[Rfam]
RNA sequence: AAUCACGAGAUCCGGUGCUAAGCCCUGGCUGGCCGGACGGCAACCCUCUCACCGUAGUGGGGUGCUCCAGGUGAUGAUUCGGCCUCCGGUGACCACCGCGGGGCAAGUACGGCAC
Number, nucleotide and partner (000 for none) at each position: 001a079002a078003u077004c076005a000006c000007g000008a000009g038010a000011u037012c036013c035014g034015g033016u032017g000018c000019u000020a000021a030022g029023c000024c000025c000026u000027g000028g000029c022030u021031g000032g016033c015034c014035g013036g012037a011038c009039g066040g065041c064042a000043a000044c062045c061046c060047u000048c057049u056050c000051a000052c000053c000054g000055u000056a049057g048058u000059g000060g046061g045062g044063u000064g041065c040066u039067c000068c000069a000070g000071g000072u000073g000074a000075u000076g004077a003078u002079u001080c000081g000082g104083c103084c102085u101086c100087c098088g097089g096090u095091g000092a000093c000094c000095a090096c089097c088098g087099c000100g086101g085102g084103g083104c082105a000106a000107g000108u000109a000110c000111g000112g000113c000114a000115c000

The family of this 115-nucleotide RNA from Citricoccus muralis is "SAM (S-adenosyl methionine) riboswitch aptamer". A search with the family's covariance model found it, with a score of 92 bits.